Overview:
Rfam assigns this 65-nucleotide RNA from Synaphobranchus kaupii to the family "mir-375 microRNA precursor family". Rfam 15.1 lists 824 matches to the family in 730 species. Its family is annotated with miRNA-mediated post-transcriptional gene silencing and RISC complex in the Gene Ontology. On this family, see Chen et al., Genes Dev 2005: "The developmental miRNA profiles of zebrafish as determined by small RNA cloning". The base pairs follow the family's consensus structure, which was predicted with RNAalifold.
RNA sequence: CCUCACGUUGAGCCACACGUACAAUACCUAAAGGUGAUGUUUUGUUCGUUCGGCUCGCGUUAUGC
Numbered sequence: 001c002c003u004c005a006c007g008u009u010g011a012g013c014c015a016c017a018c019g020u021a022c023a024a025u026a027c028c029u030a031a032a033g034g035u036g037a038u039g040u041u042u043u044g045u046u047c048g049u050u051c052g053g054c055u056c057g058c059g060u061u062a063u064g065c
Stems, first nucleotide, its partner, number of pairs: 001064001003062001005060003009057006018048002021045004026040002
Dot-bracket structure: (.(.(((.((((((...((.((((.((...........)).)))).))...))))))))).).).